[Rfam]
RNA sequence: GAUUUCAGCUGAAAAAGUCAUGGAAAUAAAAGUUGUACAACUCAUCAAGAUCUACAACUUUUAUUUUGGUCAUUUUUUCAUCCGACAAAGUUAUGGUAACAUUGUUCAUAAAUUUUACAUAUCUCUAUUAACGUUUAUGAAACUAUUAGAGAGAUACGUAAAAUUUGUGAACAAGGUUACCAUAACUUUGUCGAAUGAACAAAUGACCAAAAUAAAGGUUGUAGAUCUUGAUGAGUUGUACAACUUUUAUGUGCAUGACCUUUUCAUUUGAAAUU
Dot-bracket structure: .............((.(((((..(.((..(((((((((((((.((((((((((.(((((((((((((.(((((((.(((((.((((((((((.((((((..(((((((((((.((.((.(((..........((((...))))..........))).)).)).)))))))))))..)))))).)))))))))).))))).))))))).))))))))))))).)))))))))).)))))))))))))..)).)..))))).)).............